[Rfam]
Nucleotides: 080
Stems, first nucleotide, its partner, number of pairs: 055076008
Number, partner (000 for none) and nucleotide at each position: 001000g002000a003000a004000a005000a006000a007000a008000a009000g010000a011000u012000u013000u014000c015000a016000c017000a018000u019000c020000g021000g022000u023000a024000u025000a026000u027000c028000c029000c030000a031000u032000c033000g034000a035000c036000a037000u038000u039000u040000g041000g042000a043000a044000u045000u046000c047000u048000c049000c050000c051000a052000u053000c054000u055076a056075c057074c058073u059072c060071g061070g062069c063000u064000a065000u066000c067000a068000a069062g070061u071060c072059g073058g074057g075056g076055u077000u078000u079000u080000u